The record is a 112-nucleotide RNA sequence from Musa balbisiana, which matches "Plastid-psbA-1 3UTR RNA" in Rfam.
The family is grouped with related families in Rfam's "Plastid-psbA 3UTR RNA clan".
A search with the family's covariance model found it, with a score of 81 bits.
By type it is a cis-regulatory element.
Taxonomically the source falls in Musa (Eukaryota, Embryophyta, Euphyllophyta, Mesangiospermae).
RNA sequence: UCGAAGAUUCAUCUACAAAUGGAUAAGAUGUUUUGUCUUAGUUAUACUAAUCGUUGAACAAGUAGCAAUACCCAUGUUCUUGCUUUAGCAAUACAUGGGGUAUUGCUACUUU
Numbered sequence: 001u002c003g004a005a006g007a008u009u010c011a012u013c014u015a016c017a018a019a020u021g022g023a024u025a026a027g028a029u030g031u032u033u034u035g036u037c038u039u040a041g042u043u044a045u046a047c048u049a050a051u052c053g054u055u056g057a058a059c060a061a062g063u064a065g066c067a068a069u070a071c072c073c074a075u076g077u078u079c080u081u082g083c084u085u086u087a088g089c090a091a092u093a094c095a096u097g098g099g100g101u102a103u104u105g106c107u108a109c110u111u112u
Stems, first nucleotide, its partner, number of pairs: 008023005060111012073098001078093001080091002